[Rfam]
This 193-nucleotide RNA from Anopheles stephensi belongs to the Rfam family "drz-agam-2-2 ribozyme". A search with the family's covariance model found it, with a score of 133 bits. Gene Ontology term of the family: catalytic activity.

RNA sequence: UUCGGAUUGCUCUGUUAAUCGGGUAGGAACCGAGGCUCCUUUCGGGGUUACACAGACUCUCCUACCCAACUCCUAUUCCGACACGUCCUCGUCGUACAGAGUGGGAACUUUCCCCACAACAUAUCCAAGCUUGGGUACACGGGCCUGUUCCAACCCCUUGGGCGGAUGAUGGAGAAAGGCUAAACAGUAGGGG
Numbered sequence: 001u002u003c004g005g006a007u008u009g010c011u012c013u014g015u016u017a018a019u020c021g022g023g024u025a026g027g028a029a030c031c032g033a034g035g036c037u038c039c040u041u042u043c044g045g046g047g048u049u050a051c052a053c054a055g056a057c058u059c060u061c062c063u064a065c066c067c068a069a070c071u072c073c074u075a076u077u078c079c080g081a082c083a084c085g086u087c088c089u090c091g092u093c094g095u096a097c098a099g100a101g102u103g104g105g106a107a108c109u110u111u112c113c114c115c116a117c118a119a120c121a122u123a124u125c126c127a128a129g130c131u132u133g134g135g136u137a138c139a140c141g142g143g144c145c146u147g148u149u150c151c152a153a154c155c156c157c158u159u160g161g162g163c164g165g166a167u168g169a170u171g172g173a174g175a176a177a178g179g180c181u182a183a184a185c186a187g188u189a190g191g192g193g
Stems, first nucleotide, its partner, number of pairs: 009102007021067008031055001071193004076189001079187001083095003087104002108178005114172003117168001123167004131153005155162002